[Rfam]
RNA sequence: CUUCCUGUUUUAGCACCACCCAUCUGCCUUGUCACAAGAUGUGUGGCUAUACUAACAGGAGAAAGGAACUCUUGUCAAGAUCUGAAGGGGUGGAUGCUCACACUUCUUCCACCUCUAUAUGAACUGGCAGUACAUUAGUUU
Numbered sequence: 001c002u003u004c005c006u007g008u009u010u011u012a013g014c015a016c017c018a019c020c021c022a023u024c025u026g027c028c029u030u031g032u033c034a035c036a037a038g039a040u041g042u043g044u045g046g047c048u049a050u051a052c053u054a055a056c057a058g059g060a061g062a063a064a065g066g067a068a069c070u071c072u073u074g075u076c077a078a079g080a081u082c083u084g085a086a087g088g089g090g091u092g093g094a095u096g097c098u099c100a101c102a103c104u105u106c107u108u109c110c111a112c113c114u115c116u117a118u119a120u121g122a123a124c125u126g127g128c129a130g131u132a133c134a135u136u137a138g139u140u141u
Stems, first nucleotide, its partner, number of pairs: 004059004016046004074128004092116003
RNA: Small nucleolar RNA SNORA29